[Rfam]
RNA sequence: AUAUUUGCUGAUGCAGCAUCAUCAAGAUUCUCAUAUAAGAAAGAGAGCUCUUUGGAGCAAAAGGAGACCCCUCCCUCAUCCUCCAUUGAUCAAACUAUUAAAAAAGCUUAUGUGAAUCUUGAUGAUGCCGCAUCCGCCAAUAC
Numbered sequence: 001a002u003a004u005u006u007g008c009u010g011a012u013g014c015a016g017c018a019u020c021a022u023c024a025a026g027a028u029u030c031u032c033a034u035a036u037a038a039g040a041a042a043g044a045g046a047g048c049u050c051u052u053u054g055g056a057g058c059a060a061a062a063g064g065a066g067a068c069c070c071c072u073c074c075c076u077c078a079u080c081c082u083c084c085a086u087u088g089a090u091c092a093a094a095c096u097a098u099u100a101a102a103a104a105a106g107c108u109u110a111u112g113u114g115a116a117u118c119u120u121g122a123u124g125a126u127g128c129c130g131c132a133u134c135c136g137c138c139a140a141u142a143c
Base pairs, nucleotide, nucleotide: 010134011133012132013131014130016128017127018126019125020124021123022122023121024120025119026118027117028116029115030114032112033111034110035109
Description
Rfam assigns this 143-nucleotide RNA from Ricinus communis to the family "mir-172 microRNA precursor family". Taxonomically the source falls in Ricinus (Eukaryota, eudicotyledons, Pentapetalae, Acalypheae). The literature on the family includes a 2002 paper in Curr Biol by Park et al., "CARPEL FACTORY, a Dicer homolog, and HEN1, a novel protein, act in microRNA metabolism in Arabidopsis thaliana". Rfam's curators write: mir-172 has been experimentally verified in Arabidopsis thaliana. This family is thought to target mRNAs coding for APETALA2-like transcription factors.